A member of the RNA family "Archaeal small subunit ribosomal RNA" from Halostagnicola sp. A56, 504 nucleotides of a longer RNA. The base pairs follow the family's consensus structure, which is taken from published work. It scores 1400 bits against the family's covariance model.
RNA sequence: AUUCCGGUUGAUCCUGCCGGAGGUCAUUGCUAUUGGAGUCCGAUUUAGCCAUGCUAGUUGUACGAGUUGAGACUCGUAGCAGAUAGCUCAGUAACACGUGGCCAAACUACCCUAUCGAGCACGAUACUCUCGGGAAACUGAGGCUAAUAGUGCAUACGGCUCGGUGUCUGGAGUGACCCGAGUCAGAAACGCUCAGGCGCGAUAGGAUGUGGCUGCGGCCGAUUAGGUAGACGGUGGGGUAACGGCCCACCGUGCCAAUAAUCGGUACGGGUUGUGAGAGCAAGAGCCCGGAGACGGUAUCUGAGACAAGAUACCGGGCCCUACGGGGCGCAGCAGGCGCGAAACCUUUACACUGCACGCGAGUGCGAUAAGGGGACUCCAAGUGCGAGGGCAUAUAGUCCUCGCUUUUUCCGACCGUAGGAUGGUCGGCGAAUAAGUGCUGGGCAAGACCGGUGCCAGCCGCCGCGGUAAUACCGGCAGCACGAGUGAUGACCGCUAUUAUUG
Numbered sequence: 001a002u003u004c005c006g007g008u009u010g011a012u013c014c015u016g017c018c019g020g021a022g023g024u025c026a027u028u029g030c031u032a033u034u035g036g037a038g039u040c041c042g043a044u045u046u047a048g049c050c051a052u053g054c055u056a057g058u059u060g061u062a063c064g065a066g067u068u069g070a071g072a073c074u075c076g077u078a079g080c081a082g083a084u085a086g087c088u089c090a091g092u093a094a095c096a097c098g099u100g101g102c103c104a105a106a107c108u109a110c111c112c113u114a115u116c117g118a119g120c121a122c123g124a125u126a127c128u129c130u131c132g133g134g135a136a137a138c139u140g141a142g143g144c145u146a147a148u149a150g151u152g153c154a155u156a157c158g159g160c161u162c163g164g165u166g167u168c169u170g171g172a173g174u175g176a177c178c179c180g181a182g183u184c185a186g187a188a189a190c191g192c193u194c195a196g197g198c199g200c201g202a203u204a205g206g207a208u209g210u211g212g213c214u215g216c217g218g219c220c221g222a223u224u225a226g227g228u229a230g231a232c233g234g235u236g237g238g239g240u241a242a243c244g245g246c247c248c249a250c251c252g253u254g255c256c257a258a259u260a261a262u263c264g265g266u267a268c269g270g271g272u273u274g275u276g277a278g279a280g281c282a283a284g285a286g287c288c289c290g291g292a293g294a295c296g297g298u299a300u301c302u303g304a305g306a307c308a309a310g311a312u313a314c315c316g317g318g319c320c321c322u323a324c325g326g327g328g329c330g331c332a333g334c335a336g337g338c339g340c341g342a343a344a345c346c347u348u349u350a351c352a353c354u355g356c357a358c359g360c361g362a363g364u365g366c367g368a369u370a371a372g373g374g375g376a377c378u379c380c381a382a383g384u385g386c387g388a389g390g391g392c393a394u395a396u397a398g399u400c401c402u403c404g405c406u407u408u409u410u411c412c413g414a415c416c417g418u419a420g421g422a423u424g425g426u427c428g429g430c431g432a433a434u435a436a437g438u439g440c441u442g443g444g445c446a447a448g449a450c451c452g453g454u455g456c457c458a459g460c461c462g463c464c465g466c467g468g469u470a471a472u473a474c475c476g477g478c479a480g481c482a483c484g485a486g487u488g489a490u491g492a493c494c495g496c497u498a499u500u501a502u503u504g
Stems, first nucleotide, its partner, number of pairs: 004020005022494010033382009042340001048338003052335003057080003062077006087293003097217007106210002111206007119153004128143006158184007167176002191198002219265003226256003231253008268290004272283004295316006318329004346372001348371003354367005385405008411429006437483006450477004459466002